[Rfam]
RNA sequence: CCCUCGGAGUGUUAUAUCAAACGAAAGUAGUAAGUUCUUAGAACAACAAAAUCGGACAUAAUGAACAGGGAA
Numbered sequence: 001c002c003c004u005c006g007g008a009g010u011g012u013u014a015u016a017u018c019a020a021a022c023g024a025a026a027g028u029a030g031u032a033a034g035u036u037c038u039u040a041g042a043a044c045a046a047c048a049a050a051a052u053c054g055g056a057c058a059u060a061a062u063g064a065a066c067a068g069g070g071a072a
Stems, first nucleotide, its partner, number of pairs: 001070004009059005022054003030047002034044004
Dot-bracket structure: ((((....(((((........(((.....((..((((...)))).))....)))))))).......))))..
RNA: RAGATH-18 RNA
Organism: Gottschalkia acidurici